[Rfam]
RNA: TPP riboswitch aptamer (THI element)
Organism: Xenorhabdus bovienii
RNA sequence: UAUUUUGACUCGGGGCGUUCUUGAUUGAACUGAGAAGUACCCGUAUUACCUGAUCUGGAUAAUGCCAGCGUAGGGAAGUCAUGGUAUCUCCUA
Numbered sequence: 001u002a003u004u005u006u007g008a009c010u011c012g013g014g015g016c017g018u019u020c021u022u023g024a025u026u027g028a029a030c031u032g033a034g035a036a037g038u039a040c041c042c043g044u045a046u047u048a049c050c051u052g053a054u055c056u057g058g059a060u061a062a063u064g065c066c067a068g069c070g071u072a073g074g075g076a077a078g079u080c081a082u083g084g085u086a087u088c089u090c091c092u093a
Base pairs, nucleotide, nucleotide: 006081007080008079009078010077011043012042013041014040016037017030018029019028020027049074050073051072052071055068056067057066058065